RNA sequence: ACCUCCUGUGCCUACUGAGCUGAUAACAGUUAAAUGUUAAACAAGUACUGGCUCAGUUCAGCAGGAACCGGAG
Numbered sequence: 001a002c003c004u005c006c007u008g009u010g011c012c013u014a015c016u017g018a019g020c021u022g023a024u025a026a027c028a029g030u031u032a033a034a035u036g037u038u039a040a041a042c043a044a045g046u047a048c049u050g051g052c053u054c055a056g057u058u059c060a061g062c063a064g065g066a067a068c069c070g071g072a073g
Stems, first nucleotide, its partner, number of pairs: 003073004008068002011065003015061009027050004
Notes: Rfam assigns this 73-nucleotide sequence from Channa argus to the family "mir-24 microRNA precursor family". It scores 78 bits against the family's covariance model. From the family's description: This family represents the microRNA (miRNA) mir-24 family. miRNAs are transcribed as ~70nt precursors (modelled here) and subsequently processed by the Dicer enzyme to give a ~22nt product. Taxonomically the source falls in Channa (Eukaryota, Chordata, Clupeocephala, Ctenosquamata). A reference for the family is Lagos-Quintana et al. (2001), "Identification of novel genes coding for small expressed RNAs", Science.